[Rfam]
Shown here is a 63-nucleotide RNA, a member of the family "cow-rumen-1 RNA".

RNA sequence: UCAUUGGUCGCUGCAGUUAGAAAGUUUGGCAGCGUAAACCCAGCACCGGACAUGACGAAGAGG
Number, nucleotide and partner (000 for none) at each position: 001u000002c000003a000004u043005u042006g041007g040008u000009c034010g033011c032012u031013g030014c000015a026016g025017u024018u000019a000020g000021a000022a000023a000024g017025u016026u015027u000028g000029g000030c013031a012032g011033c010034g009035u000036a000037a000038a000039c000040c007041c006042a005043g004044c000045a000046c000047c000048g000049g000050a000051c000052a000053u000054g000055a000056c000057g000058a000059a000060g000061a000062g000063g000